[Rfam]
RNA sequence: AUCUUAUCCAGAGAGGUGGAGGGACUGGCCCUUUGAAGCCUCGGCAGCGAGCAUUUUAUAUGUGUUGUGCCAAUUCCAGUAGCGUUUAGCUAGUAGAUAAGAA
Numbered sequence: 001a002u003c004u005u006a007u008c009c010a011g012a013g014a015g016g017u018g019g020a021g022g023g024a025c026u027g028g029c030c031c032u033u034u035g036a037a038g039c040c041u042c043g044g045c046a047g048c049g050a051g052c053a054u055u056u057u058a059u060a061u062g063u064g065u066u067g068u069g070c071c072a073a074u075u076c077c078a079g080u081a082g083c084g085u086u087u088a089g090c091u092a093g094u095a096g097a098u099a100a101g102a103a
Stems, first nucleotide, its partner, number of pairs: 002102007013042005021031003025079004043071004048067002051063003075095001080092004
RNA: SAM riboswitch aptamer (S box leader)
Organism: Nosocomiicoccus massiliensis